[Rfam]
Nucleotides: 177
Base pairs, nucleotide, nucleotide: 007171008170009169010168011167017083018082019081020080021079024076025075033068035066036065037064038063039062040061087115088114089113090111091110092109093108094107095106096105097104116142117141119139120138121137122136123135124134125133126132144162145161146160147159149157
Number, partner (000 for none) and nucleotide at each position: 001000c002000g003000g004000u005000g006000a007171g008170g009169u010168a011167g012000a013000g014000g015000u016000u017083g018082c019081a020080c021079c022000g023000a024076u025075u026000a027000u028000g029000a030000g031000u032000a033068a034000u035066c036065a037064g038063u039062c040061a041000g042000a043000a044000g045000c046000c047000g048000u049000u050000g051000g052000g053000g054000c055000u056000a057000g058000u059000g060000a061040u062039g063038a064037c065036u066035g067000c068033u069000g070000a071000a072000a073000g074000g075025g076024a077000a078000a079021g080020g081019u082018g083017c084000c085000g086000a087115a088114g089113c090111a091110a092109u093108u094107u095106g096105a097104a098000c099000c100000a101000a102000c103000a104097u105096u106095c107094a108093g109092a110091u111090u112000u113089g114088c115087u116142g117141g118000g119139c120138c121137u122136g123135u124134a125133c126132u127000a128000a129000a130000u131000a132126a133125g134124u135123a136122c137121a138120g139119g140000a141117c142116u143000g144162c145161c146160g147159c148000a149157g150000u151000c152000u153000u154000c155000a156000u157149c158000c159147g160146c161145g162144g163000a164000g165000c166000g167011c168010u169009a170008u171007c172000a173000g174000g175000a176000g177000a
This 177-nucleotide RNA from Bacillus sp. SJS belongs to the Rfam family "Lysine riboswitch aptamer". Lineage of the source: Bacteria > Bacillota > Caryophanales > Bacillaceae > Bacillus.